Shown here is a 190-nucleotide RNA from Salisediminibacterium beveridgei, a member of the family "6S / SsrS RNA".
Rfam's curators write: E. coli 6S RNA was the first non coding RNA to be sequenced, but its function was unknown until recently.
On this family, see Wassarman and Storz, Cell 2000: "6S RNA regulates E. coli RNA polymerase activity".
The base pairs follow the family's consensus structure, which is taken from published work.
RNA sequence: CGGUGCCUGCGAUGCUGGUGUACUUCGAUUGUAAUUCGAACCGAACAUUCAAUCACAUAGGGAGCCUUACCAUUGAAGAAAUGACAACAGGCCUGGUAACGUGCCGGGAAGUUGAAAAUUCUUCUGCGGGCACCCACCUGCUUUAGGCGGGUUCGUGAUCAAGAGAAGCUAACCGCAUCGCGGGCAUAAA
Numbered sequence: 001c002g003g004u005g006c007c008u009g010c011g012a013u014g015c016u017g018g019u020g021u022a023c024u025u026c027g028a029u030u031g032u033a034a035u036u037c038g039a040a041c042c043g044a045a046c047a048u049u050c051a052a053u054c055a056c057a058u059a060g061g062g063a064g065c066c067u068u069a070c071c072a073u074u075g076a077a078g079a080a081a082u083g084a085c086a087a088c089a090g091g092c093c094u095g096g097u098a099a100c101g102u103g104c105c106g107g108g109a110a111g112u113u114g115a116a117a118a119u120u121c122u123u124c125u126g127c128g129g130g131c132a133c134c135c136a137c138c139u140g141c142u143u144u145a146g147g148c149g150g151g152u153u154c155g156u157g158a159u160c161a162a163g164a165g166a167a168g169c170u171a172a173c174c175g176c177a178u179c180g181c182g183g184g185c186a187u188a189a190a
Base pairs, nucleotide, nucleotide: 003187004186005185006184007183008182009181010180011179012178013177014176015175017174018173019172035157037155038154039153040152041151042150060135061134062133064131065130066129067128075124076123077122078121079120080119087112088111092108093107094106095105096104